[Rfam]
RNA sequence: AAGCUGCCCACAUGUUCGCUGAUUCCGAUCAGCACAUGCCAGCAGCCAGGGUUCCAGGCUGCCGCGGGUCUCUCCCGCGUUGCCCACCAGUCCGCAUCGCAUCAAUUCCGCGGACGCGCGUCCCCGUGACGUCGAUGC
Numbered sequence: 001a002a003g004c005u006g007c008c009c010a011c012a013u014g015u016u017c018g019c020u021g022a023u024u025c026c027g028a029u030c031a032g033c034a035c036a037u038g039c040c041a042g043c044a045g046c047c048a049g050g051g052u053u054c055c056a057g058g059c060u061g062c063c064g065c066g067g068g069u070c071u072c073u074c075c076c077g078c079g080u081u082g083c084c085c086a087c088c089a090g091u092c093c094g095c096a097u098c099g100c101a102u103c104a105a106u107u108c109c110g111c112g113g114a115c116g117c118g119c120g121u122c123c124c125c126g127u128g129a130c131g132u133c134g135a136u137g138c
Stems, first nucleotide, its partner, number of pairs: 011038005018033006042062006049085003063079006110138003118132005
radC RNA: a 138-nucleotide sequence from Xylella fastidiosa. Rfam 15.1 lists 500 matches to the family in 142 species. By type it is a cis-regulatory element. Lineage of the source: Bacteria > Gammaproteobacteria > Lysobacterales > Lysobacteraceae > Xylella fastidiosa.